[Rfam]
The family of this 113-nucleotide RNA from Paenibacillus sedimenti is "epsC RNA". The base pairs follow the family's consensus structure, which is taken from published work. It scores 101 bits against the family's covariance model.

RNA sequence: AGGUAAUGUCUACUGCACCUUUAUCACUGUAGGCACUCGAUCAUGCUGUGGGUGUGAAAGCACCUUAGACGUAAAUCGUCGGUGGUGUGAUGUGAGGAGGGGUUGAAUGCCCG
Numbered sequence: 001a002g003g004u005a006a007u008g009u010c011u012a013c014u015g016c017a018c019c020u021u022u023a024u025c026a027c028u029g030u031a032g033g034c035a036c037u038c039g040a041u042c043a044u045g046c047u048g049u050g051g052g053u054g055u056g057a058a059a060g061c062a063c064c065u066u067a068g069a070c071g072u073a074a075a076u077c078g079u080c081g082g083u084g085g086u087g088u089g090a091u092g093u094g095a096g097g098a099g100g101g102g103u104u105g106a107a108u109g110c111c112c113g
Stems, first nucleotide, its partner, number of pairs: 001020004007035007036096004040091008050065006068080004100112004